[Rfam]
RNA sequence: AAGCUGGAGGAUGAGGAGCUUGUCUCCAACAUUCUAAUAGGUCUGGAUCGGGAGUACGAUUCAGUGAUGUCAGCGGUGGCUGCACUCGUCGAACCAAUCUCGGUUGGGGAGCUUUACACCCAACUGACAAGCUUCGAGC
Numbered sequence: 001a002a003g004c005u006g007g008a009g010g011a012u013g014a015g016g017a018g019c020u021u022g023u024c025u026c027c028a029a030c031a032u033u034c035u036a037a038u039a040g041g042u043c044u045g046g047a048u049c050g051g052g053a054g055u056a057c058g059a060u061u062c063a064g065u066g067a068u069g070u071c072a073g074c075g076g077u078g079g080c081u082g083c084a085c086u087c088g089u090c091g092a093a094c095c096a097a098u099c100u101c102g103g104u105u106g107g108g109g110a111g112c113u114u115u116a117c118a119c120c121c122a123a124c125u126g127a128c129a130a131g132c133u134u135c136g137a138g139c
Stems, first nucleotide, its partner, number of pairs: 004138002007135002089107004
RNA: Small nucleolar RNA Z247
Organism: Miscanthus lutarioriparius